[Rfam]
RNA sequence: GAUUGACCGCGCAUCGCGGCCUCUGCCCGAGCCGGCCCUGGCGUACUUCCCCGACGCCAGGUCCCCCCACUCGGGCAGAGACCACGGUGUGCGGCCGCGAAUCU
Numbered sequence: 001g002a003u004u005g006a007c008c009g010c011g012c013a014u015c016g017c018g019g020c021c022u023c024u025g026c027c028c029g030a031g032c033c034g035g036c037c038c039u040g041g042c043g044u045a046c047u048u049c050c051c052c053g054a055c056g057c058c059a060g061g062u063c064c065c066c067c068c069a070c071u072c073g074g075g076c077a078g079a080g081a082c083c084a085c086g087g088u089g090u091g092c093g094g095c096c097g098c099g100a101a102u103c104u
Stems, first nucleotide, its partner, number of pairs: 010091007018083002021080010031067001034064002037061008
RNA: mraW RNA
Organism: Mycobacterium sp. 1274761.0